This 104-nucleotide RNA from Cytobacillus horneckiae belongs to the Rfam family "Guanidine-I riboswitch aptamer".

[Rfam]
Nucleotides: 104
Stems, first nucleotide, its partner, number of pairs: 007054006015044002020041002022038001023035002026032002056077007079099001081102001085097003
Number, partner (000 for none) and nucleotide at each position: 001000a002000a003000a004000a005000a006000u007054g008053u009052u010051u011050c012049c013000u014000a015044g016043g017000g018000u019000u020041c021040c022038g023035c024034a025000u026032a027031u028000u029000u030000u031027g032026u033000u034024u035023g036000g037000u038022c039000u040021g041020g042000u043016c044015c045000g046000a047000g048000a049012g050011g051010a052009a053008a054007c055000u056077c057076g058075c059074a060073g061072u062071g063000u064000u065000u066000a067000a068000c069000a070000c071062u072061a073060c074059u075058g076057u077056g078000c079099c080000a081102c082000g083000g084000a085097g086096g087095g088000a089000u090000a091000a092000a093000a094000g095087c096086c097085c098000g099079g100000g101000a102081g103000a104000u

The pairing is the family consensus, mapped onto this sequence.